The family of this 157-nucleotide RNA sequence from Populus tomentosa is "MIR2912 microRNA precursor family". The base pairs follow the family's consensus structure, which was predicted with RNAalifold. NCBI's taxonomy places the organism under Eukaryota, Tracheophyta, Salicaceae, Saliceae, Populus.

RNA sequence: CUUAGAACUCGAGAUAUGGGUUGAACAUUAAACAGUGUUUGGGCUACAAGACAGAUUCAAAAUUCUCCGUUGUUACUAUAAUUUGGACUUGAAAACGGCUUUUUUAAAUCUUGAACUCCACAUGAAAGUUGUAGGCCUAUGUCUUACCGAAUCUGUC
Numbered sequence: 001c002u003u004a005g006a007a008c009u010c011g012a013g014a015u016a017u018g019g020g021u022u023g024a025a026c027a028u029u030a031a032a033c034a035g036u037g038u039u040u041g042g043g044c045u046a047c048a049a050g051a052c053a054g055a056u057u058c059a060a061a062a063u064u065c066u067c068c069g070u071u072g073u074u075a076c077u078a079u080a081a082u083u084u085g086g087a088c089u090u091g092a093a094a095a096c097g098g099c100u101u102u103u104u105u106a107a108a109u110c111u112u113g114a115a116c117u118c119c120a121c122a123u124g125a126a127a128g129u130u131g132u133a134g135g136c137c138u139a140u141g142u143c144u145u146a147c148c149g150a151a152u153c154u155g156u157c
Base pairs, nucleotide, nucleotide: 003155004154005153006152009146011145012144013143014142015141016140017139018138019137020136021134022133023132025130027129028128029127035123036122037121041119042118043117045115048112049111050110051109054105055104059100063097072088073087074086